A member of the RNA family "TPP riboswitch aptamer (THI element)" from Schaalia canis, 108 nucleotides long. The family's consensus secondary structure is taken from published work. The organism belongs to Schaalia, within Bacteria.
RNA sequence: UUUUGGGUGCACGGGAGCCUCACGUAGAGGCUGAGAGGGAGGUAGCGCCUCCGACCGGUGAACCUGAUCUGGGUCAUGCCAGCGAAGGGACGCACUGCCACACUCCCA
Numbered sequence: 001u002u003u004u005g006g007g008u009g010c011a012c013g014g015g016a017g018c019c020u021c022a023c024g025u026a027g028a029g030g031c032u033g034a035g036a037g038g039g040a041g042g043u044a045g046c047g048c049c050u051c052c053g054a055c056c057g058g059u060g061a062a063c064c065u066g067a068u069c070u071g072g073g074u075c076a077u078g079c080c081a082g083c084g085a086a087g088g089g090a091c092g093c094a095c096u097g098c099c100a101c102a103c104u105c106c107c108a
Stems, first nucleotide, its partner, number of pairs: 006096005012057003017031005038052005063088003069082004